Rfam assigns this 114-nucleotide RNA sequence from Pedococcus cremeus to the family "SAM (S-adenosyl methionine) riboswitch aptamer". The source organism's lineage runs through Bacteria, Bacillati, Actinomycetota, Intrasporangiaceae and Pedococcus. SAM-IV is a mRNA element that regulates gene expression via direct sensing of S-adenosylmethionine (SAM or AdoMet). Gene Ontology terms of the family: S-adenosylmethionine metabolic process and regulation of gene expression. A reference for the family is Weinberg et al. (2008), "The aptamer core of SAM-IV riboswitches mimics the ligand-binding site of SAM-I riboswitches", RNA.
RNA sequence: GGUCAUGAGUGUCAGCGCGAAGCCCCGGCUCGCUGACCGGCAACCCUCCAACCGCGGUGGGGUGCCCCGGGUGAAGACCUGGCGUGAGGCGACAGCCGAGCGCAAGCGCGGGAG
Numbered sequence: 001g002g003u004c005a006u007g008a009g010u011g012u013c014a015g016c017g018c019g020a021a022g023c024c025c026c027g028g029c030u031c032g033c034u035g036a037c038c039g040g041c042a043a044c045c046c047u048c049c050a051a052c053c054g055c056g057g058u059g060g061g062g063u064g065c066c067c068c069g070g071g072u073g074a075a076g077a078c079c080u081g082g083c084g085u086g087a088g089g090c091g092a093c094a095g096c097c098g099a100g101c102g103c104a105a106g107c108g109c110g111g112g113a114g
Stems, first nucleotide, its partner, number of pairs: 001079004009038001011037006021030002039066003044062003048057002082103004088097003